RNA sequence: AAGAGAGCCGUCUAUUGACAGUUCGUCUCUGUUCAGUCAGGUACUGUCAUGGAGUCGCUCUCUUCA
Numbered sequence: 001a002a003g004a005g006a007g008c009c010g011u012c013u014a015u016u017g018a019c020a021g022u023u024c025g026u027c028u029c030u031g032u033u034c035a036g037u038c039a040g041g042u043a044c045u046g047u048c049a050u051g052g053a054g055u056c057g058c059u060c061u062c063u064u065c066a
Base pairs, nucleotide, nucleotide: 001064002063003062004061006059007058008057011053012052013051014050017048018047019046021044022043